[Rfam]
RNA sequence: UACUCCCUCCGUCCCAAAUAAACCAACCUCGUACUGGGAUGUGUCACAUCCUAGUACGAGGUUGGCUUAUUUUGUGAUGGAGGGAGUAA
Numbered sequence: 001u002a003c004u005c006c007c008u009c010c011g012u013c014c015c016a017a018a019u020a021a022a023c024c025a026a027c028c029u030c031g032u033a034c035u036g037g038g039a040u041g042u043g044u045c046a047c048a049u050c051c052u053a054g055u056a057c058g059a060g061g062u063u064g065g066c067u068u069a070u071u072u073u074g075u076g077a078u079g080g081a082g083g084g085a086g087u088a089a
Stems, first nucleotide, its partner, number of pairs: 001088013015074002017071005023065012037051003
The family of this 89-nucleotide RNA from Oryza glumipatula is "MIR1862 microRNA precursor family". NCBI's taxonomy places the organism under Eukaryota, Streptophytina, Tracheophyta, Oryzinae, Oryza. Rfam links the family to the GO terms miRNA-mediated post-transcriptional gene silencing and RISC complex. The family's consensus secondary structure was predicted with RNAalifold. It scores 88 bits against the family's covariance model.